[Rfam]
RNA sequence: AAGUCAGCCAGGAGACUAUAAAAUUCAUACUGAUGAGACUGGACGAAAUACCUAGUAACAGUUGUACGUUAUUAGGUAUCUAUGA
Numbered sequence: 001a002a003g004u005c006a007g008c009c010a011g012g013a014g015a016c017u018a019u020a021a022a023a024u025u026c027a028u029a030c031u032g033a034u035g036a037g038a039c040u041g042g043a044c045g046a047a048a049u050a051c052c053u054a055g056u057a058a059c060a061g062u063u064g065u066a067c068g069u070u071a072u073u074a075g076g077u078a079u080c081u082a083u084g085a
Base pairs, nucleotide, nucleotide: 002017003016004015005014008042009041010040011039025085026084027083028082029081037044048079049078050077051076052075053074054073055072056071057070058069059068
Rfam assigns this 85-nucleotide sequence to the family "RAGATH-1 hammerhead ribozyme". For this family Rfam cites "New classes of self-cleaving ribozymes revealed by comparative genomics analysis" (Weinberg et al., Nat Chem Biol, 2015). Rfam's curators put it in the seed alignment.